[Rfam]
About this RNA
A member of the RNA family "SAM riboswitch aptamer (S box leader)" from Ureibacillus terrenus, 110 nucleotides long. Pairs were carried over by alignment from the consensus structure, which is taken from published work.

RNA sequence: UUCUUAUCAAGAGAAGUGGAGGGACUUGGCCCAAUGAAACUUCAGCAACCUCUAACAUUACGUUAGAAAGGUGCUAAUUCCAGCAAGGCUCUUGCCUUGGGAGAUAAGAG
Numbered sequence: 001u002u003c004u005u006a007u008c009a010a011g012a013g014a015a016g017u018g019g020a021g022g023g024a025c026u027u028g029g030c031c032c033a034a035u036g037a038a039a040c041u042u043c044a045g046c047a048a049c050c051u052c053u054a055a056c057a058u059u060a061c062g063u064u065a066g067a068a069a070g071g072u073g074c075u076a077a078u079u080c081c082a083g084c085a086a087g088g089c090u091c092u093u094g095c096c097u098u099g100g101g102a103g104a105u106a107a108g109a110g
Stems, first nucleotide, its partner, number of pairs: 001110008013043005021032003026083004044075004049071002051067004079102001084099006